[Rfam]
Annotation: This 153-nucleotide RNA sequence from Celerinatantimonas diazotrophica belongs to the Rfam family "FMN riboswitch aptamer (RFN element)". Rfam's curators write: The RFN element is a highly conserved domain that is found frequently in the 5'-untranslated regions of prokaryotic mRNAs that encode for flavin mononucleotide (FMN) biosynthesis and transport proteins. The organism belongs to Celerinatantimonas, within Bacteria.
RNA sequence: AGAUAUUCUCAGGGCGGGGUGGAAGUCCCCACCGGCGGUAAUAUAUCAAUAGAUAUUAAGCCCGCGAGCGCUUUAUGUUUUUUUGCAUAAAGGUCAGCAGACUUGGUGUGAUUCCAAGGCCGACGGUUAUAGUCCGGAUGAGAGAGAAGCAGA
Numbered sequence: 001a002g003a004u005a006u007u008c009u010c011a012g013g014g015c016g017g018g019g020u021g022g023a024a025g026u027c028c029c030c031a032c033c034g035g036c037g038g039u040a041a042u043a044u045a046u047c048a049a050u051a052g053a054u055a056u057u058a059a060g061c062c063c064g065c066g067a068g069c070g071c072u073u074u075a076u077g078u079u080u081u082u083u084u085g086c087a088u089a090a091a092g093g094u095c096a097g098c099a100g101a102c103u104u105g106g107u108g109u110g111a112u113u114c115c116a117a118g119g120c121c122g123a124c125g126g127u128u129a130u131a132g133u134c135c136g137g138a139u140g141a142g143a144g145a146g147a148a149g150c151a152g153a
Stems, first nucleotide, its partner, number of pairs: 006148005017029003031133002033122002035065004060120002068098002102118005124136003